[Rfam]
RNA sequence: AAACUUUUUCGGGGCAGGGUGAGGUUGAUUUAAAAAUAACCAAUUCCCGACCGGUGGUAAAUUCUUUCUGUUGUAUUAUAUCAAUGAUUGAAUAAGCCCACGAGCUCAGCACUAAUUUAUGUUGAUAAUUAUUUAUUGAGUGCUUGGUAGAUCUGGUGAAAAGCCAGAGCCGACAGUAAAGUCUGGAAGGGAGAAGAAGUAA
Numbered sequence: 001a002a003a004c005u006u007u008u009u010c011g012g013g014g015c016a017g018g019g020u021g022a023g024g025u026u027g028a029u030u031u032a033a034a035a036a037u038a039a040c041c042a043a044u045u046c047c048c049g050a051c052c053g054g055u056g057g058u059a060a061a062u063u064c065u066u067u068c069u070g071u072u073g074u075a076u077u078a079u080a081u082c083a084a085u086g087a088u089u090g091a092a093u094a095a096g097c098c099c100a101c102g103a104g105c106u107c108a109g110c111a112c113u114a115a116u117u118u119a120u121g122u123u124g125a126u127a128a129u130u131a132u133u134u135a136u137u138g139a140g141u142g143c144u145u146g147g148u149a150g151a152u153c154u155g156g157u158g159a160a161a162a163g164c165c166a167g168a169g170c171c172g173a174c175a176g177u178a179a180a181g182u183c184u185g186g187a188a189g190g191g192a193g194a195a196g197a198a199g200u201a202a
Stems, first nucleotide, its partner, number of pairs: 003200008017048003050182002052172002054101004096170002104148003152168005174185003
RNA: FMN riboswitch aptamer (RFN element)